Rfam assigns this 73-nucleotide sequence from Actinoplanes cyaneus to the family "6C RNA". A reference for the family is Weinberg et al. (2007), "Identification of 22 candidate structured RNAs in bacteria using the CMfinder comparative genomics pipeline", Nucleic Acids Res. The match comes from Rfam's covariance-model search (65 bits). Rfam classes the family as a cis-regulatory element. Pairs were carried over by alignment from the consensus structure, which is taken from published work.
RNA sequence: AGUGAUUCGGCUCGACCCCCCCGGAGCCGAAUCCCAGGACGACCCCCGUCUCCCCCGGCGGGGGUCGUUCCCU
Dot-bracket structure: .(.((((((((((..........)))))))))).)..(((((((((((((......)))))))))))))....